Shown here is a 94-nucleotide RNA from Populus tomentosa, a member of the family "mir-166 microRNA precursor family". The family's consensus secondary structure was predicted with PFOLD. NCBI's taxonomy places the organism under Eukaryota, Embryophyta, Pentapetalae, Saliceae, Populus. The family has 31 seed sequences and 2,599 matches in Rfam 15.1. This family represents the plant microRNA (miRNA) precursor mir-166.
RNA sequence: UUUGAGGGGAAUGUUGUUUGGUUCAAGGCCUGGCCAACCCAUGUUUUGGAAUUUAAAAUAUCAUGUCCUCGGACCAGGCUUCAUUCCCCUCAAU
Numbered sequence: 001u002u003u004g005a006g007g008g009g010a011a012u013g014u015u016g017u018u019u020g021g022u023u024c025a026a027g028g029c030c031u032g033g034c035c036a037a038c039c040c041a042u043g044u045u046u047u048g049g050a051a052u053u054u055a056a057a058a059u060a061u062c063a064u065g066u067c068c069u070c071g072g073a074c075c076a077g078g079c080u081u082c083a084u085u086c087c088c089c090u091c092a093a094u
Base pairs, nucleotide, nucleotide: 002093003092004091005090006089007088008087009086010085011084012083013082016079017078018077019076020075021074024071026069